[Rfam]
RNA sequence: UCUGCAGUAGGGUGUAAGUACAGAUAAGCUAUCACCUCAGA
Numbered sequence: 001u002c003u004g005c006a007g008u009a010g011g012g013u014g015u016a017a018g019u020a021c022a023g024a025u026a027a028g029c030u031a032u033c034a035c036c037u038c039a040g041a
Stems, first nucleotide, its partner, number of pairs: 001041004007035002009032001011030003
Overview: Shown here is a 41-nucleotide RNA from Canis lupus, a member of the family "MAT2A 3'UTR stem loop D". Pairs were carried over by alignment from the consensus structure, which is taken from published work. The family's RNA type in Rfam is cis-regulatory element. It is one of the family's seed sequences. On this family, see Parker et al., Genome Res 2011: "New families of human regulatory RNA structures identified by comparative analysis of vertebrate genomes".